[Rfam]
RNA sequence: GGCGCAGCUCUUGCUAAAGAAUCCUCACCGGUAACCAACGGCGGUUGCCCCUUCUACGACAAAGACGUCGC
Numbered sequence: 001g002g003c004g005c006a007g008c009u010c011u012u013g014c015u016a017a018a019g020a021a022u023c024c025u026c027a028c029c030g031g032u033a034a035c036c037a038a039c040g041g042c043g044g045u046u047g048c049c050c051c052u053u054c055u056a057c058g059a060c061a062a063a064g065a066c067g068u069c070g071c
Base pairs, nucleotide, nucleotide: 030049031048032047033046034045035044036043
Rfam assigns this 71-nucleotide sequence to the family "narK RNA". Rfam's curators put it in the seed alignment.